[Rfam]
RNA sequence: ACCAUCCUUCUCUUGGGGUUGAGCUACUGAUCAAUGAAGCUUACUGAGAUCAGUACUGCUGACACCACAAACAACACAUGAGCAUCACUAGUGUGUAAGUACUGGAAUGGUGCAAUUUUUGGAACC
Numbered sequence: 001a002c003c004a005u006c007c008u009u010c011u012c013u014u015g016g017g018g019u020u021g022a023g024c025u026a027c028u029g030a031u032c033a034a035u036g037a038a039g040c041u042u043a044c045u046g047a048g049a050u051c052a053g054u055a056c057u058g059c060u061g062a063c064a065c066c067a068c069a070a071a072c073a074a075c076a077c078a079u080g081a082g083c084a085u086c087a088c089u090a091g092u093g094u095g096u097a098a099g100u101a102c103u104g105g106a107a108u109g110g111u112g113c114a115a116u117u118u119u120u121g122g123a124a125c126c
Stems, first nucleotide, its partner, number of pairs: 006018004021059001023057001026054007038045002082113006089104006
RNA: U4atac minor spliceosomal RNA